[Rfam]
RNA: Plastid-psbA-1 3UTR RNA
RNA sequence: CGAUUUUUCUUUAAAGAAAAUAUGUAAGUCAAUGUGAAAUAAAAAAGGAGCAAUAAUCCCCUCCUUGUUCUAUCAAGAGGGGGAUAUUGCUCCUUUUU
Number, nucleotide and partner (000 for none) at each position: 001c000002g000003a000004u000005u000006u000007u000008u000009c000010u000011u000012u000013a000014a000015a000016g000017a000018a000019a000020a000021u000022a000023u000024g000025u000026a000027a000028g000029u000030c000031a000032a000033u000034g000035u000036g000037a000038a000039a000040u000041a000042a000043a000044a096045a095046a094047g093048g092049a091050g090051c089052a088053a087054u086055a085056a000057u000058c082059c081060c080061c000062u079063c000064c077065u076066u075067g000068u000069u000070c000071u000072a000073u000074c000075a066076a065077g064078a000079g062080g060081g059082g058083g000084a000085u055086a054087u053088u052089g051090c050091u049092c048093c047094u046095u045096u044097u000098u000